RNA sequence: GUAUAUAUAUAAGACUUGCUUUCGGGUCACAAAUGGAGAUGAACCUUUUUCAUUAUCACCGGGGGAAAAGUCUCGAGACCGAACGUAGAGAUUACUGAUUUGAGGAAUCGUAUCGAACCUAUCAGCUGUUUCCUGUUGAUGCAAUGACACUAUUUGGCGGAGCUGGGAGUUGUUGGUAGGUAUAUUCGUCAUAGCAGAGACUGAUGCAAGUAGCACUUUAGUGCUAACUGAAUGGGGAUUACUUUAAAGGAAUU
Number, nucleotide and partner (000 for none) at each position: 001g000002u000003a253004u252005a000006u250007a000008u248009a000010u246011a245012a000013g000014a211015c210016u209017u208018g207019c206020u000021u000022u064023c063024g000025g060026g059027u058028c000029a000030c000031a000032a000033a000034u000035g000036g051037a050038g049039a048040u000041g046042a000043a000044c000045c000046u041047u000048u039049u038050u037051c036052a000053u000054u000055a000056u000057c000058a027059c026060c025061g000062g000063g023064g022065g000066a000067a000068a240069a239070g000071u000072c237073u236074c235075g000076a000077g000078a000079c000080c000081g000082a000083a000084c097085g095086u094087a093088g000089a000090g000091a000092u000093u087094a086095c085096u000097g084098a113099u112100u000101u110102g109103a108104g000105g000106a000107a000108u103109c102110g101111u000112a099113u098114c000115g183116a000117a181118c000119c000120u000121a177122u176123c175124a174125g173126c172127u000128g000129u000130u000131u169132c000133c167134u000135g000136u000137u000138g000139a000140u000141g163142c162143a000144a000145u000146g000147a000148c000149a000150c157151u156152a000153u000154u000155u000156g151157g150158c000159g000160g000161a000162g142163c141164u000165g000166g000167g133168a000169g131170u000171u000172g126173u125174u124175g123176g122177u121178a000179g000180g000181u117182a000183u115184a000185u000186u000187c000188g000189u000190c000191a000192u000193a000194g000195c000196a000197g000198a000199g000200a000201c000202u000203g000204a000205u000206g019207c018208a017209a016210g015211u014212a000213g224214c223215a222216c221217u000218u000219u000220a000221g216222u215223g214224c213225u000226a000227a000228c000229u000230g000231a000232a000233u000234g000235g074236g073237g072238a000239u069240u068241a000242c000243u000244u000245u011246a010247a000248a008249g000250g006251a000252a004253u003254u000
RNA: RNase MRP
Organism: Octopus sinensis